[Rfam]
RNA sequence: UUUGUGGGGGAUGGUGGCUGGCCCGAUGUAUUUCAUCAUUCGAUUGAUCGGAUGAAUUUGUACAAGAGAUUUCAGUUUAAUUUCUCUCUACAAUUUCUUCGAAUACGAUGACAACAUCGGACCAGGCUUCAUUCCUCUCAAA
Numbered sequence: 001u002u003u004g005u006g007g008g009g010g011a012u013g014g015u016g017g018c019u020g021g022c023c024c025g026a027u028g029u030a031u032u033u034c035a036u037c038a039u040u041c042g043a044u045u046g047a048u049c050g051g052a053u054g055a056a057u058u059u060g061u062a063c064a065a066g067a068g069a070u071u072u073c074a075g076u077u078u079a080a081u082u083u084c085u086c087u088c089u090a091c092a093a094u095u096u097c098u099u100c101g102a103a104u105a106c107g108a109u110g111a112c113a114a115c116a117u118c119g120g121a122c123c124a125g126g127c128u129u130c131a132u133u134c135c136u137c138u139c140a141a142a
Stems, first nucleotide, its partner, number of pairs: 001142004006137008016127001018125004024119006
Rfam assigns this 142-nucleotide sequence from Mikania micrantha to the family "mir-166 microRNA precursor family". The match comes from Rfam's covariance-model search (63 bits). A reference for the family is Reinhart et al. (2002), "MicroRNAs in plants", Genes Dev. The organism belongs to Mikania, within Eukaryota. Rfam links the family to the GO terms RISC complex and miRNA-mediated post-transcriptional gene silencing. About the family: This family represents the plant microRNA (miRNA) precursor mir-166.